[Rfam]
RNA sequence: UAACUUAAAGAUGGCUAGUAAAUCACUGCGUGAGAUAAGUAAUAGUUACAAGUCAACAAAAGAUAAGAGUUGGGUAUUAAAAAACGAAGGAUUAUUUACUAGAAGUAAAAUUGGUACGACCGAGUGGACUCGAACCACCGACCCCCACCA
Numbered sequence: 001u002a003a004c005u006u007a008a009a010g011a012u013g014g015c016u017a018g019u020a021a022a023u024c025a026c027u028g029c030g031u032g033a034g035a036u037a038a039g040u041a042a043u044a045g046u047u048a049c050a051a052g053u054c055a056a057c058a059a060a061a062g063a064u065a066a067g068a069g070u071u072g073g074g075u076a077u078u079a080a081a082a083a084a085c086g087a088a089g090g091a092u093u094a095u096u097u098a099c100u101a102g103a104a105g106u107a108a109a110a111u112u113g114g115u116a117c118g119a120c121c122g123a124g125u126g127g128a129c130u131c132g133a134a135c136c137a138c139c140g141a142c143c144c145c146c147a148c149c150a
Base pairs, nucleotide, nucleotide: 018043019042025036027034057072058071059070112147113146114145121140122139124138125137126136127135
The family of this 150-nucleotide RNA from Saccharobesus litoralis is "Bacterial antisense RNA HPnc0260". For this family Rfam cites "The primary transcriptome of the major human pathogen Helicobacter pylori" (Sharma et al., Nature, 2010). Pairs were carried over by alignment from the consensus structure, which was predicted with CMfinder. It scores 64 bits against the family's covariance model. NCBI's taxonomy places the organism under Bacteria, Gammaproteobacteria, Alteromonadales, Alteromonadaceae, Saccharobesus.